RNA: FMN riboswitch aptamer (RFN element)
Nucleotides: 119
Base pairs, nucleotide, nucleotide: 003117005115006114007113008112009111010110017029018028019027031099032098033089034088035049036048037047038046044087045086053064054063069085070084071083072082073081091102092101093100
Number, partner (000 for none) and nucleotide at each position: 001000u002000a003117g004000c005115g006114u007113c008112u009111u010110u011000g012000u013000g014000g015000c016000a017029g018028g019027g020000u021000g022000u023000a024000a025000g026000u027019c028018c029017c030000u031099a032098c033089c034088g035049a036048u037047g038046g039000u040000a041000a042000a043000a044087g045086u046038c047037c048036a049035u050000g051000a052000c053064c054063c055000g056000c057000a058000a059000u060000u061000g062000c063054g064053g065000c066000u067000g068000a069085u070084c071083u072082g073081g074000u075000g076000u077000a078000a079000u080000u081073c082072c083071a084070g085069a086045a087044c088034c089033g090000a091102c092101g093100g094000u095000a096000u097000a098032g099031u100093c101092c102091g103000g104000a105000u106000g107000a108000g109000a110010a111009a112008a113007g114006a115005c116000a117003u118000a119000a